[Rfam]
RNA sequence: CUUCCUCGGCCUGCUGCGGGCAGAUGAAGUGGAUGUGCGAGUCGAUGCCGCCGGCGGUGACGAUCUUGCCUUCGGCGGCGAUGACUUCGGUGGCCGCGCCGAUGGGAAUCGUCACACCCGGCUGGAUGUCCGGAUUGCCGGCCUUACCGAUGGCGGCGAUGCGGCCGUUCUUGACGCCGAUGUCGGCCUUCACGAUGCCCCAGUGGUCGAUGAUGAGGGCGUUGGUCAGCACCAGGUCGACGGUUUCGGCCGCCAGCAUCUGGCCCUGGCCCAUGCCGUCGCGGAU
Number, nucleotide and partner (000 for none) at each position: 001c000002u285003u284004c000005c283006u000007c281008g280009g279010c000011c000012u158013g157014c156015u155016g154017c153018g076019g000020g000021c000022a072023g071024a000025u000026g000027a000028a000029g000030u053031g052032g051033a000034u050035g049036u000037g048038c047039g046040a000041g000042u000043c000044g000045a000046u039047g038048c037049c035050g034051c032052c031053g030054g000055c000056g000057g069058u068059g067060a000061c000062g000063a000064u000065c000066u000067u059068g058069c057070c000071u023072u022073c000074g000075g000076c018077g148078g147079c000080g000081a144082u000083g142084a000085c140086u000087u000088c000089g000090g138091u137092g136093g135094c000095c133096g000097c000098g129099c128100c000101g000102a000103u000104g000105g000106g000107a123108a000109u121110c120111g119112u000113c000114a000115c000116a000117c000118c000119c111120g110121g109122c000123u107124g000125g000126a000127u000128g099129u098130c000131c000132g000133g095134a000135u093136u092137g091138c090139c000140g085141g000142c083143c000144u081145u000146a000147c078148c077149g000150a000151u000152g000153g017154c016155g015156g014157c013158g012159a000160u000161g000162c000163g000164g270165c269166c268167g267168u000169u000170c263171u262172u000173g260174a259175c000176g257177c000178c000179g000180a000181u000182g000183u000184c000185g000186g220187c219188c218189u217190u216191c215192a000193c000194g000195a000196u000197g000198c000199c000200c209201c000202a000203g000204u000205g000206g000207u000208c000209g200210a000211u000212g000213a000214u000215g191216a190217g189218g188219g187220c186221g000222u000223u255224g254225g253226u000227c000228a000229g000230c248231a000232c000233c000234a246235g245236g244237u000238c000239g000240a000241c000242g000243g000244u236245u235246u234247c000248g230249g000250c000251c000252g000253c225254c224255a223256g000257c176258a000259u174260c173261u000262g171263g170264c000265c000266c000267u167268g166269g165270c164271c000272c000273a000274u000275g000276c000277c000278g000279u009280c008281g007282c000283g005284g003285a002286u000
RNA: 5' ureB small RNA